[Rfam]
RNA sequence: GUGGUUCCGGUUCCCGCCCCCUGGUCUCCAGGCUGACAGAGGCGAUCCGGCGACC
Numbered sequence: 001g002u003g004g005u006u007c008c009g010g011u012u013c014c015c016g017c018c019c020c021c022u023g024g025u026c027u028c029c030a031g032g033c034u035g036a037c038a039g040a041g042g043c044g045a046u047c048c049g050g051c052g053a054c055c
Stems, first nucleotide, its partner, number of pairs: 003055003007050004015044004019039001